[Rfam]
RNA: mir-12 microRNA precursor family
RNA sequence: CCGGGGUGAGUAUUACAUCAGGUACUGGUGUGUAAUUUAAACGACCAUCGGACAUGGGGGCUGCCCAACUCCUCUUCUGUCCCCGGUCAAGCUAUCAGUACUUGUGUUAUACUCUCCUCGU
Numbered sequence: 001c002c003g004g005g006g007u008g009a010g011u012a013u014u015a016c017a018u019c020a021g022g023u024a025c026u027g028g029u030g031u032g033u034a035a036u037u038u039a040a041a042c043g044a045c046c047a048u049c050g051g052a053c054a055u056g057g058g059g060g061c062u063g064c065c066c067a068a069c070u071c072c073u074c075u076u077c078u079g080u081c082c083c084c085g086g087u088c089a090a091g092c093u094a095u096c097a098g099u100a101c102u103u104g105u106g107u108u109a110u111a112c113u114c115u116c117c118u119c120g121u
Stems, first nucleotide, its partner, number of pairs: 002120005009113004015107004021102009
Dot-bracket structure: .(((((..((((..((((..(((((((((................................................................))))))))).))))..))))..))))).